The family of this 131-nucleotide RNA sequence from Martelella mediterranea is "Alphaproteobacterial ar14".
It is annotated as a small RNA.
Lineage of the source: Bacteria > Pseudomonadota > Alphaproteobacteria > Martelella > Martelella mediterranea.
Rfam's curators write: Smr14C2 was renamed NfeR1 (Nodule Formation Efficiency RNA) highly expressed in salt stress and during the symbiotic interaction on legume roots.

RNA sequence: GGAAUUCGUGGGGCAUCCUCCUCCUCCUCCCAAAUGCCCCUCGAUAGGUCGGUGAUCCUCCUCCUCCUCCCAAAUCACCGGCCAACCAAAAUGACGCUCACCGGAUCCUCCUCCCCCGGUGAGCGUUAUUU
Numbered sequence: 001g002g003a004a005u006u007c008g009u010g011g012g013g014c015a016u017c018c019u020c021c022u023c024c025u026c027c028u029c030c031c032a033a034a035u036g037c038c039c040c041u042c043g044a045u046a047g048g049u050c051g052g053u054g055a056u057c058c059u060c061c062u063c064c065u066c067c068u069c070c071c072a073a074a075u076c077a078c079c080g081g082c083c084a085a086c087c088a089a090a091a092u093g094a095c096g097c098u099c100a101c102c103g104g105a106u107c108c109u110c111c112u113c114c115c116c117c118g119g120u121g122a123g124c125g126u127u128a129u130u131u
Stems, first nucleotide, its partner, number of pairs: 007043002010040007047083010094126011
Dot-bracket structure: ......((.(((((((.................))))))).))...((((((((((.................))))))))))..........(((((((((((...........))))))))))).....